[Rfam]
RNA sequence: GAUUAGGACACAUACUUCUGGACAUACCAUAUUUUGAUAUUGAAUUGUAUGGAAUGUAAAGAAGUAUGGAGUGCUUUC
Numbered sequence: 001g002a003u004u005a006g007g008a009c010a011c012a013u014a015c016u017u018c019u020g021g022a023c024a025u026a027c028c029a030u031a032u033u034u035u036g037a038u039a040u041u042g043a044a045u046u047g048u049a050u051g052g053a054a055u056g057u058a059a060a061g062a063a064g065u066a067u068g069g070a071g072u073g074c075u076u077u078c
Stems, first nucleotide, its partner, number of pairs: 007072001011068009022057003027052005
The record is a 78-nucleotide RNA from Tetranychus urticae, which matches "mir-1 microRNA precursor family" in Rfam.
NCBI's taxonomy places the organism under Eukaryota, Opisthokonta, Eumetazoa, Tetranychoidea, Tetranychus.
For this family Rfam cites "microRNAs: tiny regulators with great potential" (Ambros, Cell, 2001).
From the family's description: This family represents the microRNA (miRNA) mir-1 family. miRNAs are transcribed as ~70nt precursors (modelled here) and subsequently processed by the Dicer enzyme to give a ~22nt product. In this case the mature sequence comes from the 3' arm of the precursor. The extents of the hairpin precursors are not generally known and are estimated based on hairpin prediction.